[Rfam]
RNA sequence: GAUAAAAUUGAAAAUGCACCGUAGACAGCAGGUGUGAGUUCCACAUAAAUCCUGCCGAGGUUUCUCAUAAUAAAGAAAAAAUUUGUUUAUUAGAGAUCUCUACGUCUACGGGGAUCUCUUAAAUUUUUCUAAU
Numbered sequence: 001g002a003u004a005a006a007a008u009u010g011a012a013a014a015u016g017c018a019c020c021g022u023a024g025a026c027a028g029c030a031g032g033u034g035u036g037a038g039u040u041c042c043a044c045a046u047a048a049a050u051c052c053u054g055c056c057g058a059g060g061u062u063u064c065u066c067a068u069a070a071u072a073a074a075g076a077a078a079a080a081a082u083u084u085g086u087u088u089a090u091u092a093g094a095g096a097u098c099u100c101u102a103c104g105u106c107u108a109c110g111g112g113g114a115u116c117u118c119u120u121a122a123a124u125u126u127u128u129c130u131a132a133u
Base pairs, nucleotide, nucleotide: 028055029054030053031052032051034044035043036042093118094117095116096115097114098113099112100111101110
Dot-bracket structure: ...........................(((((.(((.....)))......))))).....................................(((((((((........)))))))))...............
The family of this 133-nucleotide sequence from Aceticella autotrophica is "Ribosomal protein L10 leader". Rfam describes the family as follows. This family is a putative r-protein leader autoregulatory structure found in B. subtilis and other low-GC Gram-positive bacteria. The base pairs follow the family's consensus structure, which was predicted with CMfinder. It is annotated as a cis-regulatory leader. Taxonomically the source falls in Aceticella (Bacteria, Bacillota, Clostridia, Thermoanaerobacteraceae).